Nitrogen stress-induced RNA 1: a 62-nucleotide sequence from Tolypothrix tenuis. The organism belongs to Tolypothrix tenuis, within Bacteria. A reference for the family is Ionescu et al. (2010), "Heterocyst-specific transcription of NsiR1, a non-coding RNA encoded in a tandem array of direct repeats in cyanobacteria", J Mol Biol. A search with the family's covariance model found it, with a score of 60 bits.
Nucleotides: 062
Base pairs, nucleotide, nucleotide: 002013003012004011027054028053029052030051031050032049033048034047036045037044
Number, partner (000 for none) and nucleotide at each position: 001000u002013g003012g004011u005000a006000g007000a008000u009000g010000c011004a012003c013002c014000u015000u016000g017000a018000u019000c020000u021000u022000c023000g024000a025000c026000u027054c028053c029052c030051c031050u032049a033048a034047u035000u036045g037044g038000c039000a040000a041000a042000u043000g044037c045036c046000c047034a048033u049032u050031a051030g052029g053028g054027g055000a056000u057000u058000u059000u060000u061000u062000u